This 62-nucleotide RNA sequence from Cercocebus atys belongs to the Rfam family "U7 small nuclear RNA".
[Rfam]
RNA sequence: CAGUGUUACAGCUCUUUUAGAAUUUGUACAGCUGGUUUUCUGGUUUCUACCAGAAAACUCCC
Numbered sequence: 001c002a003g004u005g006u007u008a009c010a011g012c013u014c015u016u017u018u019a020g021a022a023u024u025u026g027u028a029c030a031g032c033u034g035g036u037u038u039u040c041u042g043g044u045u046u047c048u049a050c051c052a053g054a055a056a057a058c059u060c061c062c
Stems, first nucleotide, its partner, number of pairs: 034059011
The family's consensus secondary structure was predicted with PFOLD. Rfam describes the family as follows. Animal histone pre-mRNAs are spliced by a different mechanism than nuclear pre-mRNAs and self-splicing introns. Rfam 15.1 lists 10,439 matches to the family in 569 species.